Source information
The family of this 138-nucleotide sequence from Chloropsis cyanopogon is "Small nucleolar RNA SNORA15". Pairs were carried over by alignment from the consensus structure, which was predicted with RNAfold. Rfam 15.1 lists 974 matches to the family in 624 species. The literature on the family includes a 2001 paper in EMBO J by Huttenhofer et al., "RNomics: an experimental approach that identifies 201 candidates for novel, small, non-messenger RNAs in mouse". Gene Ontology terms of the family: nucleolus and RNA processing. It scores 68 bits against the family's covariance model. The source organism's lineage runs through Eukaryota, Bilateria, Deuterostomia, Craniata and Chloropsis.
RNA sequence: GCAUGGAUGAAUUCUGCACUAGCUUUCCUCAGUAGCUGCUGCAGUCAGACACCAUGCCAGAGCAAAUUCCUUUAUCUCCACCAUGCCUGGUGUGCUUCUUUAUGGGAAUGAGCAUGCCCUUGGAAAGGGAGCACAUCU
Numbered sequence: 001g002c003a004u005g006g007a008u009g010a011a012u013u014c015u016g017c018a019c020u021a022g023c024u025u026u027c028c029u030c031a032g033u034a035g036c037u038g039c040u041g042c043a044g045u046c047a048g049a050c051a052c053c054a055u056g057c058c059a060g061a062g063c064a065a066a067u068u069c070c071u072u073u074a075u076c077u078c079c080a081c082c083a084u085g086c087c088u089g090g091u092g093u094g095c096u097u098c099u100u101u102a103u104g105g106g107a108a109u110g111a112g113c114a115u116g117c118c119c120u121u122g123g124a125a126a127g128g129g130a131g132c133a134c135a136u137c138u
Stems, first nucleotide, its partner, number of pairs: 001057006014044005070131003073127001075125001077124003089118009